RNA sequence: UAUGCUUGUCCUAAGUCGAACUUUGUUAAGUUUGACCAAGUUUAUAAAAAAAUACUAAUAUCUACAAAAUGAAAUAUGUAUAGUAUAAAAACAUACUUUACAAGGAAUCUAAUUAAACGAAUUUGGUGCUGUAGAUGUUGGUAUAUUUUUUUAUAGACUUGGUGAAAUUUAGAAAAGUUCCACUCAGGACAAACUUAA
Numbered sequence: 001u002a003u004g005c006u007u008g009u010c011c012u013a014a015g016u017c018g019a020a021c022u023u024u025g026u027u028a029a030g031u032u033u034g035a036c037c038a039a040g041u042u043u044a045u046a047a048a049a050a051a052a053u054a055c056u057a058a059u060a061u062c063u064a065c066a067a068a069a070u071g072a073a074a075u076a077u078g079u080a081u082a083g084u085a086u087a088a089a090a091a092c093a094u095a096c097u098u099u100a101c102a103a104g105g106a107a108u109c110u111a112a113u114u115a116a117a118c119g120a121a122u123u124u125g126g127u128g129c130u131g132u133a134g135a136u137g138u139u140g141g142u143a144u145a146u147u148u149u150u151u152u153a154u155a156g157a158c159u160u161g162g163u164g165a166a167a168u169u170u171a172g173a174a175a176a177g178u179u180c181c182a183c184u185c186a187g188g189a190c191a192a193a194c195u196u197a198a
Base pairs, nucleotide, nucleotide: 006192007191008190009189011187012186014184015183016182018180019179020178021177022176023175024174026173031167032166033165035163043153044152046150047149048148049147050146053143054142055141057139058138059137060136061135062134063133064132065131066130070126072124073123074122075121
Dot-bracket structure: .....((((.((.(((.(((((((.(....(((.(.......((.(((((..(((.((((((((((...(.((((.............................................)))).)...)))))))))).)))..))))).)).........).))).....)))))))).))).)).))))......
Source information:
The family of this 198-nucleotide sequence from Triticum turgidum is "MIR1435 microRNA precursor family". Lineage of the source: Eukaryota > Viridiplantae > Tracheophyta > Spermatophyta > Triticum turgidum.